RNA: U11 spliceosomal RNA
Organism: Dibothriocephalus latus
RNA sequence: AAAAAGGGCUCCUGCCGCACGGCUGCGCGUACCCUUCAGGGUUCGUGAGCGGAAUGGUCAUCUACACAUUCCGGGAGCACAAUCUUUGACCUGCGGUUGGCUGCUACGUGGCGGCUACCGCU
Numbered sequence: 001a002a003a004a005a006g007g008g009c010u011c012c013u014g015c016c017g018c019a020c021g022g023c024u025g026c027g028c029g030u031a032c033c034c035u036u037c038a039g040g041g042u043u044c045g046u047g048a049g050c051g052g053a054a055u056g057g058u059c060a061u062c063u064a065c066a067c068a069u070u071c072c073g074g075g076a077g078c079a080c081a082a083u084c085u086u087u088g089a090c091c092u093g094c095g096g097u098u099g100g101c102u103g104c105u106a107c108g109u110g111g112c113g114g115c116u117a118c119c120g121c122u
Stems, first nucleotide, its partner, number of pairs: 008078005014023003024049001026047004031042004050073007094120004099116007